RNA sequence: ACACGAUAAUAGCAAAUCUGACGAAAGUCAGGGACGCAAAGCUACAGGGACUAACGUGUAAACUAUGUCAGCCAGCUGCCGAA
Numbered sequence: 001a002c003a004c005g006a007u008a009a010u011a012g013c014a015a016a017u018c019u020g021a022c023g024a025a026a027g028u029c030a031g032g033g034a035c036g037c038a039a040a041g042c043u044a045c046a047g048g049g050a051c052u053a054a055c056g057u058g059u060a061a062a063c064u065a066u067g068u069c070a071g072c073c074a075g076c077u078g079c080c081g082a083a
Base pairs, nucleotide, nucleotide: 012037013036017032018031019030020029021028022027040077041076042075043074047073048072049069050068051067056063057062
Source information: The record is an 83-nucleotide RNA from Paenibacillus sp. UNCCL117, which matches "c-di-GMP-I riboswitch aptamer" in Rfam. Taxonomically the source falls in Paenibacillus (Bacteria, Bacillota, Bacilli, Paenibacillaceae). Pairs were carried over by alignment from the consensus structure, which is taken from published work.